Record summary
Mammalian CPEB3 ribozyme: a 74-nucleotide RNA sequence from Polypterus senegalus. Its family is annotated with RNA nuclease activity in the Gene Ontology. Rfam's curators write: The mammalian CPEB3 ribozyme is a self cleaving RNA located in the second intron of the CPEB3 gene which belongs to a family of genes regulating messenger RNA polyadenylation. This ribozyme is highly conserved and found only in mammals. The match comes from Rfam's covariance-model search (61 bits).

RNA sequence: AGAGCAUUACAGAAGGCCACAGUACAAGUGUUCUCGUCAUGGCCCUUGUCAGAUUCUAGUCUGCAAAUCCUACU
Numbered sequence: 001a002g003a004g005c006a007u008u009a010c011a012g013a014a015g016g017c018c019a020c021a022g023u024a025c026a027a028g029u030g031u032u033c034u035c036g037u038c039a040u041g042g043c044c045c046u047u048g049u050c051a052g053a054u055u056c057u058a059g060u061c062u063g064c065a066a067a068u069c070c071u072a073c074u
Stems, first nucleotide, its partner, number of pairs: 013046001015044004021074004027068001028040003050063005
Dot-bracket structure: ............(.((((..[[[[..[(((.......))))))).)...(((((....)))))....]..]]]]